[Rfam]
Nucleotides: 564
Base pairs, nucleotide, nucleotide: 009025010024011023012022013021027554028553029552030551032550033549034548035547036546037545039401040400041399042398043397044396045394046393047359052357053356054355056354057353058352061104062103063102066101067100069097070096076091077090078089079088080087081086111312112311113310120237121236122235123234124233125232126231129229130228134225135224136223137222138221139220140219142176144174145173151166152165153164154163155162156161182191183190184189196217197216198215199214200213201212238284239283240282245275246274247273250272251271252270253269254268255267256266257265287309288308289307290306291302292301293300294299314335315334316333317332318331337348338347339346340345365391367390368389369388373386374385375384376383377382404434405433406432407431414425415424416423417422438495440490441489442488443487444486448481453475454474455473456472457471458470459469498543499542500541501540502539509538510537511536512535513534519526520525
Number, partner (000 for none) and nucleotide at each position: 001000u002000a003000a004000c005000u006000g007000a008000a009025g010024a011023g012022u013021u014000u015000g016000a017000u018000c019000a020000u021013g022012g023011c024010u025009c026000a027554g028553a029552u030551u031000g032550a033549a034548c035547g036546c037545u038000g039401g040400c041399g042398g043397c044396a045394g046393g047359c048000u049000u050000a051000a052357c053356a054355c055000a056354u057353g058352c059000a060000a061104g062103u063102c064000g065000a066101g067100c068000g069097g070096a071000a072000a073000c074000g075000a076091u077090g078089a079088u080087a081086g082000c083000u084000u085000g086081c087080u088079a089078u090077c091076a092000g093000g094000c095000g096070u097069c098000g099000a100067g101066c102063g103062g104061c105000g106000g107000a108000c109000g110000g111312g112311u113310g114000a115000g116000u117000a118000a119000c120237g121236c122235g123234u124233a125232g126231g127000a128000a129229u130228c131000u132000g133000c134225c135224u136223a137222g138221u139220a140219g141000a142176g143000g144174g145173g146000g147000a148000c149000a150000a151166c152165a153164u154163g155162u156161g157000g158000a159000a160000a161156c162155g163154c164153a165152u166151g167000c168000u169000a170000a171000u172000a173145c174144c175000g176142c177000a178000u179000a180000c181000g182191c183190c184189c185000u186000u187000u188000u189184g190183g191182g192000g193000a194000a195000a196217g197216g198215a199214g200213g201212g202000g203000a204000u205000c206000u207000u208000c209000g210000g211000a212201c213200c214199u215198u216197c217196c218000g219140c220139u221138a222137u223136u224135a225134g226000a227000u228130g229129a230000g231126c232125c233124u234123g235122c236121g237120u238284g239283a240282g241000a242000u243000u244000a245275g246274c247273u248000a249000g250272u251271u252270g253269g254268u255267g256266g257265g258000g259000u260000a261000a262000a263000g264000g265257c266256c267255u268254a269253c270252c271251a272250a273247g274246g275245c276000g277000a278000c279000g280000a281000u282240c283239u284238c285000u286000a287309g288308c289307u290306g291302g292301u293300c294299u295000g296000a297000g298000a299294g300293g301292a302291u303000g304000a305000u306290c307289a308288g309287c310113c311112a312111c313000a314335c315334u316333g317332g318331g319000a320000c321000u322000g323000a324000g325000a326000c327000a328000c329000g330000g331318c332317c333316c334315a335314g336000a337348c338347u339346c340345c341000u342000a343000c344000g345340g346339g347338a348337g349000g350000c351000a352058g353057c354056a355054g356053u357052g358000g359047g360000g361000a362000a363000u364000a365391u366000u367390g368389g369388a370000c371000a372000a373386u374385g375384g376383g377382g378000g379000c380000a381000a382377c383376c384375c385374u386373g387000a388369u389368c390367c391365a392000g393046c394045c395000a396044u397043g398042c399041c400040g401039c402000g403000u404434g405433u406432g407431u408000g409000a410000a411000g412000a413000a414425g415424g416423c417422c418000u419000u420000a421000g422417g423416g424415u425414u426000g427000u428000a429000a430000a431407g432406c433405a434404c435000u436000u437000u438495c439000a440490g441489a442488a443487g444486u445000g446000a447000g448481g449000a450000a451000g452000g453475g454474u455473g456472c457471u458470u459469g460000a461000u462000u463000a464000a465000u466000a467000c468000u469459c470458a471457a472456g473455u474454a475453c476000u477000u478000u479000g480000a481448c482000g483000u484000u485000a486444g487443c488442u489441u490440c491000a492000g493000a494000a495438g496000a497000a498543g499542c500541a501540c502539c503000g504000g505000c506000u507000a508000a509538c510537u511536c512535u513534g514000u515000g516000c517000c518000a519526g520525c521000a522000g523000c524000c525520g526519c527000g528000g529000u530000a531000a532000u533000a534513c535512a536511g537510a538509g539502g540501g541500u542499g543498c544000a545037a546036g547035c548034g549033u550032u551030a552029a553028u554027c555000g556000g557000a558000a559000u560000u561000a562000c563000u564000g